[Rfam]
RNA sequence: GGGCGCGUGACGGGAGAACUGGCAACGCCAGUGCCGAAGGAGCAACCGCCCCGGUAAACUCUCAGGCUUCAGGACCGCCACGCGAUA
Numbered sequence: 001g002g003g004c005g006c007g008u009g010a011c012g013g014g015a016g017a018a019c020u021g022g023c024a025a026c027g028c029c030a031g032u033g034c035c036g037a038a039g040g041a042g043c044a045a046c047c048g049c050c051c052c053g054g055u056a057a058a059c060u061c062u063c064a065g066g067c068u069u070c071a072g073g074a075c076c077g078c079c080a081c082g083c084g085a086u087a
Base pairs, nucleotide, nucleotide: 006082007081008080009079011077012076013075019031020030021029022028033067034066035065036063037062040061041060042059046054047053
The family of this 87-nucleotide RNA from Salibaculum griseiflavum is "Glycine riboswitch aptamer". A search with the family's covariance model found it, with a score of 61 bits. For this family Rfam cites "A glycine-dependent riboswitch that uses cooperative binding to control gene expression" (Mandal et al., Science, 2004). The base pairs follow the family's consensus structure. The organism belongs to Salibaculum, within Bacteria.